[Rfam]
RNA sequence: GGUUGGGCAGUAGCUUUCAAGGCAAUUUCUUCAAGGGGUGAGAAGAA
Numbered sequence: 001g002g003u004u005g006g007g008c009a010g011u012a013g014c015u016u017u018c019a020a021g022g023c024a025a026u027u028u029c030u031u032c033a034a035g036g037g038g039u040g041a042g043a044a045g046a047a
Stems, first nucleotide, its partner, number of pairs: 003020003006015003027047006

Na+ riboswitch aptamer (DUF1646): a 47-nucleotide sequence from Carnobacterium antarcticum.
Rfam links the family to the GO terms sodium ion binding and regulation of gene expression.
It scores 44 bits against the family's covariance model.
Pairs were carried over by alignment from the consensus structure, which is taken from published work.
The literature on the family includes a 2022 paper in Nat Chem Biol by White et al., "Na(+) riboswitches regulate genes for diverse physiological processes in bacteria".
The organism belongs to Carnobacterium, within Bacteria.